[Rfam]
RNA: Small nucleolar RNA SNORA81
Organism: Geotrypetes seraphini
RNA sequence: GUCUUCCUGGUAAAGCACUAUGCUAAAAUUAUCUGAGCUUGGAUUGAGUCCAGGUUUCUGUAAUGAUGCUAGCAGAGUACACACAGGAAGAAGAGCAAAUGCACAGGAUUGGUGAUUUGGGUAGACCUCUUUCUUAAUGUCUGAUGCCCAGUGUCUUAAGAUCUAGUGCAAUAAUU
Numbered sequence: 001g002u003c004u005u006c007c008u009g010g011u012a013a014a015g016c017a018c019u020a021u022g023c024u025a026a027a028a029u030u031a032u033c034u035g036a037g038c039u040u041g042g043a044u045u046g047a048g049u050c051c052a053g054g055u056u057u058c059u060g061u062a063a064u065g066a067u068g069c070u071a072g073c074a075g076a077g078u079a080c081a082c083a084c085a086g087g088a089a090g091a092a093g094a095g096c097a098a099a100u101g102c103a104c105a106g107g108a109u110u111g112g113u114g115a116u117u118u119g120g121g122u123a124g125a126c127c128u129c130u131u132u133c134u135u136a137a138u139g140u141c142u143g144a145u146g147c148c149c150a151g152u153g154u155c156u157u158a159a160g161a162u163c164u165a166g167u168g169c170a171a172u173a174a175u176u
Stems, first nucleotide, its partner, number of pairs: 018077002021074005028067004035057001037055008100170005106164003120145001122143004